[Rfam]
RNA sequence: AAGAGACUCGAGCCCAUAAAGAUUGAGAAGAUUGACUCAAGAA
Numbered sequence: 001a002a003g004a005g006a007c008u009c010g011a012g013c014c015c016a017u018a019a020a021g022a023u024u025g026a027g028a029a030g031a032u033u034g035a036c037u038c039a040a041g042a043a
Base pairs, nucleotide, nucleotide: 007041008040010038011037012036014034016032017031
Shown here is a 43-nucleotide RNA from Rhododendron simsii, a member of the family "Plastid-rpl16 group II-D1 intron". A reference for the family is Richter et al. (2023), "Retrograde signaling in plants: A critical review focusing on the GUN pathway and beyond", Plant Commun. About the family: Plastid-rpl16 is a non-coding RNA (ncRNA) recognised in plastids. Lineage of the source: Eukaryota > Tracheophyta > Pentapetalae > Ericaceae > Rhododendron.